[Rfam]
RNA sequence: UAUCCUGGACGACCUGGAUAAACGUCAUUUCAUUGGGGACGGCCCCA
Numbered sequence: 001u002a003u004c005c006u007g008g009a010c011g012a013c014c015u016g017g018a019u020a021a022a023c024g025u026c027a028u029u030u031c032a033u034u035g036g037g038g039a040c041g042g043c044c045c046c047a
Stems, first nucleotide, its partner, number of pairs: 001020005007014002034047005
Dot-bracket structure: (((((.((....)).))))).............(((((....)))))
The family of this 47-nucleotide sequence from Xenorhabdus japonica is "Guanidine-II riboswitch aptamer (mini-ykkC)". The family has 72 seed sequences and 1,589 matches in Rfam 15.1. Simpler in structure and has fewer highly conserved nucleotide positions than the ykkC-yxkD leader. Despite this each of its two stem-loop structures directly bind free guanidine. Therefore, mini-ykkC RNA motif represents a distinct class of guanidine-sensing RNAs. Its crystal structure was also determined. The organism belongs to Xenorhabdus, within Bacteria. A search with the family's covariance model found it, with a score of 43 bits. The base pairs follow the family's consensus structure, which is taken from published work. Rfam links the family to the GO term regulation of gene expression.